[Rfam]
RNA sequence: CUGUGAGGGGAAUGAUGUAUUAUUACCGUGCUCUUAAGAUGCUGGCUUUUCUUGAUUCUGCCUCGGAGAUGGACAUUAAAG
Numbered sequence: 001c002u003g004u005g006a007g008g009g010g011a012a013u014g015a016u017g018u019a020u021u022a023u024u025a026c027c028g029u030g031c032u033c034u035u036a037a038g039a040u041g042c043u044g045g046c047u048u049u050u051c052u053u054g055a056u057u058c059u060g061c062c063u064c065g066g067a068g069a070u071g072g073a074c075a076u077u078a079a080a081g
Base pairs, nucleotide, nucleotide: 001081002080004078005077006076